The family of this 191-nucleotide RNA sequence from Fukomys damarensis is "U2 spliceosomal RNA". The base pairs follow the family's consensus structure, which is taken from published work. U2 is a small nuclear RNA (snRNA) component of the spliceosome (involved in pre-mRNA splicing). Complementary binding between U2 snRNA (in an area lying towards the 5' end but 3' to hairpin I) and the branchpoint sequence (BPS) of the intron results the bulging out of an unpaired adenosine, on the BPS, which initiates a nucleophilic attack at the intronic 5' splice site, thus starting the first of two transesterification reactions that mediate splicing.
RNA sequence: AUAACUUCUUAGUCUUUUGGCUAAGAGCAAGUAUAGUAUCUGUUCUUAUCAAUUUAAUAUCUGAUAGAUCCUCUAACCAAGGACAAUAUAUUAAAUGGAGUUUUGGAGCUGGGAGAUGGUAUGGGAACUUGCUCCAUUUAUUCCAUGCAUCAACCUGGUAUUGCAGUAACUCCAGGAAUGGUGCACCCCUC
Numbered sequence: 001a002u003a004a005c006u007u008c009u010u011a012g013u014c015u016u017u018u019g020g021c022u023a024a025g026a027g028c029a030a031g032u033a034u035a036g037u038a039u040c041u042g043u044u045c046u047u048a049u050c051a052a053u054u055u056a057a058u059a060u061c062u063g064a065u066a067g068a069u070c071c072u073c074u075a076a077c078c079a080a081g082g083a084c085a086a087u088a089u090a091u092u093a094a095a096u097g098g099a100g101u102u103u104u105g106g107a108g109c110u111g112g113g114a115g116a117u118g119g120u121a122u123g124g125g126a127a128c129u130u131g132c133u134c135c136a137u138u139u140a141u142u143c144c145a146u147g148c149a150u151c152a153a154c155c156u157g158g159u160a161u162u163g164c165a166g167u168a169a170c171u172c173c174a175g176g177a178a179u180g181g182u183g184c185a186c187c188c189c190u191c
Base pairs, nucleotide, nucleotide: 007026008025009024011022012021013020014019047066048065049064050063051062069083070082071081072080112144113143114142115141118138119137124135125134126133147184148183149182150181151180152179154176155175156174157173158172